A member of the RNA family "Bacterial RNase P class B" from Candidatus Xianfuyuplasma coldseepsis, 329 nucleotides long. The family's RNA type in Rfam is ribozyme. The organism belongs to Candidatus Xianfuyuplasma, within Bacteria. Gene Ontology terms of the family: tRNA processing, dimeric ribonuclease P complex and ribonuclease P activity.

RNA sequence: AUAACUGGGUAAUCGAGCGGAAACGUUAGGAAAGUCCAUGCUAGCACAAGCUGCGAUGCUUGUAGUGUUUGUGAUAGAGAAAACCAUAACUCUAUGCACACCUUGUGUGACGGCUGGGAGGCCACCUGUUAGAUGGUGGUAGUACCUUUAAAAGUGCCACAGAGACGAGCUGGAUGGGAAACCAUUCAGGUGGAACGGGUAAACCCCUCAAGCUAGAAACCCAAAUUUGGUAGGGGCACUCCAGCGUGGGAAUUGAACCAACAAUGGAGCUGCGCAAGCAGAGAUAAAUGAUUACCACCCUUUUCGGGGACAGAACAUGGCUUAUAGGU
Numbered sequence: 001a002u003a004a005c006u007g008g009g010u011a012a013u014c015g016a017g018c019g020g021a022a023a024c025g026u027u028a029g030g031a032a033a034g035u036c037c038a039u040g041c042u043a044g045c046a047c048a049a050g051c052u053g054c055g056a057u058g059c060u061u062g063u064a065g066u067g068u069u070u071g072u073g074a075u076a077g078a079g080a081a082a083a084c085c086a087u088a089a090c091u092c093u094a095u096g097c098a099c100a101c102c103u104u105g106u107g108u109g110a111c112g113g114c115u116g117g118g119a120g121g122c123c124a125c126c127u128g129u130u131a132g133a134u135g136g137u138g139g140u141a142g143u144a145c146c147u148u149u150a151a152a153a154g155u156g157c158c159a160c161a162g163a164g165a166c167g168a169g170c171u172g173g174a175u176g177g178g179a180a181a182c183c184a185u186u187c188a189g190g191u192g193g194a195a196c197g198g199g200u201a202a203a204c205c206c207c208u209c210a211a212g213c214u215a216g217a218a219a220c221c222c223a224a225a226u227u228u229g230g231u232a233g234g235g236g237c238a239c240u241c242c243a244g245c246g247u248g249g250g251a252a253u254u255g256a257a258c259c260a261a262c263a264a265u266g267g268a269g270c271u272g273c274g275c276a277a278g279c280a281g282a283g284a285u286a287a288a289u290g291a292u293u294a295c296c297a298c299c300c301u302u303u304u305c306g307g308g309g310a311c312a313g314a315a316c317a318u319g320g321c322u323u324a325u326a327g328g329u
Stems, first nucleotide, its partner, number of pairs: 004329003007325001008296007016027004032323003036320005041216005046063006069211003073207001074095006096111001097109005112206002116147003123138004154204002156200003170189008220235003239269005270281004298308003
Notes:
Its Rfam clan is "RNaseP clan". About the family: Ribonuclease P (RNase P) is a ubiquitous endoribonuclease, found in archaea, bacteria and eukarya as well as chloroplasts and mitochondria. Its best characterised activity is the generation of mature 5'-ends of tRNAs by cleaving the 5'-leader elements of precursor-tRNAs.